The record is a 169-nucleotide RNA from Panicum virgatum, which matches "small nucleolar RNA snoR143" in Rfam.
RNA sequence: UUGCACCUGUAUUUGUUGUUUCCUGCCUUCUUUUAUGAUAGUGGGAAGUUAUGCUGGUGCACAGAUGAAAUGCUGCUCUUGUAGUGGCGGCGGCCAGACAACCGUUGAUAGAUAGAUCCACAGAUGAACAUUCUUUCUGCUGUUUGUCUACUAAUUCUAUCUCACAUUC
Numbered sequence: 001u002u003g004c005a006c007c008u009g010u011a012u013u014u015g016u017u018g019u020u021u022c023c024u025g026c027c028u029u030c031u032u033u034u035a036u037g038a039u040a041g042u043g044g045g046a047a048g049u050u051a052u053g054c055u056g057g058u059g060c061a062c063a064g065a066u067g068a069a070a071u072g073c074u075g076c077u078c079u080u081g082u083a084g085u086g087g088c089g090g091c092g093g094c095c096a097g098a099c100a101a102c103c104g105u106u107g108a109u110a111g112a113u114a115g116a117u118c119c120a121c122a123g124a125u126g127a128a129c130a131u132u133c134u135u136u137c138u139g140c141u142g143u144u145u146g147u148c149u150a151c152u153a154a155u156u157c158u159a160u161c162u163c164a165c166a167u168u169c
Stems, first nucleotide, its partner, number of pairs: 002061005012053001016051001018049009029038002107163001110162007127145002

Description
The family's RNA type in Rfam is H/ACA-box small nucleolar RNA. For this family Rfam cites "Mining small RNA sequencing data: a new approach to identify small nucleolar RNAs in Arabidopsis" (Chen and Wu, Nucleic Acids Res, 2009). Gene Ontology terms of the family: nucleolus and RNA processing. The family's consensus secondary structure was predicted with RNAalifold.